[Rfam]
Nucleotides: 075
Base pairs, nucleotide, nucleotide: 001074002073003072004071005070
Number, partner (000 for none) and nucleotide at each position: 001074g002073c003072u004071g005070g006000u007000c008000a009000g010000u011000g012000a013000u014000g015000a016000a017000a018000c019000c020000c021000u022000a023000u024000u025000u026000u027000a028000a029000a030000u031000g032000u033000g034000g035000a036000c037000u038000g039000a040000u041000g042000g043000a044000u045000g046000a047000u048000g049000c050000u051000u052000g053000c054000g055000g056000a057000u058000a059000u060000g061000g062000g063000a064000c065000u066000g067000a068000g069000g070005c071004c072003a073002g074001c075000c